[Rfam]
RNA sequence: GUGAGUUCAGCCCGACCCCCCGGGGCUGAACUCCGACGACCCCCGCCCCCUCCCCCCCCUGGCGGGGGUCGUCCUCU
Numbered sequence: 001g002u003g004a005g006u007u008c009a010g011c012c013c014g015a016c017c018c019c020c021c022g023g024g025g026c027u028g029a030a031c032u033c034c035g036a037c038g039a040c041c042c043c044c045g046c047c048c049c050c051u052c053c054c055c056c057c058c059c060u061g062g063c064g065g066g067g068g069u070c071g072u073c074c075u076c077u
Stems, first nucleotide, its partner, number of pairs: 003033011035073013

Notes:
The record is a 77-nucleotide RNA from Lolliginicoccus lacisalsi, which matches "6C RNA" in Rfam. A search with the family's covariance model found it, with a score of 75 bits. The family's consensus secondary structure is taken from published work. On this family, see Weinberg et al., Nucleic Acids Res 2007: "Identification of 22 candidate structured RNAs in bacteria using the CMfinder comparative genomics pipeline". Gene Ontology term of the family: sporulation. NCBI's taxonomy places the organism under Bacteria, Bacillati, Actinomycetes, Hoyosellaceae, Lolliginicoccus.